This 114-nucleotide RNA sequence from Micrococcus endophyticus belongs to the Rfam family "SAM (S-adenosyl methionine) riboswitch aptamer". SAM-IV is a mRNA element that regulates gene expression via direct sensing of S-adenosylmethionine (SAM or AdoMet). The organism belongs to Micrococcus, within Bacteria. Clan: SAM clan.

Nucleotides: 114
Stems, first nucleotide, its partner, number of pairs: 001079004009038001011037006022029001039066003044062003048057002082103006089096002
Number, partner (000 for none) and nucleotide at each position: 001079g002078g003077u004076c005000a006000c007000g008000a009038g010000a011037g012036c013035c014034a015033g016032c017000a018000a019000c020000a021000g022029g023000c024000c025000c026000c027000g028000g029022c030000a031000u032016g033015c034014u035013g036012g037011c038009c039066g040065g041064c042000a043000a044062c045061c046060c047000u048057c049056c050000u051000u052000c053000c054000g055000c056049g057048g058000u059000g060046g061045g062044g063000u064041g065040c066039c067000c068000c069000g070000g071000g072000u073000g074000a075000c076004g077003a078002c079001c080000a081000g082103g083102c084101c085100g086099g087098u088000c089096c090095c091000g092000c093000a094000c095090g096089g097000c098087g099086c100085c101084g102083g103082c104000a105000a106000g107000c108000g109000c110000g111000g112000g113000c114000c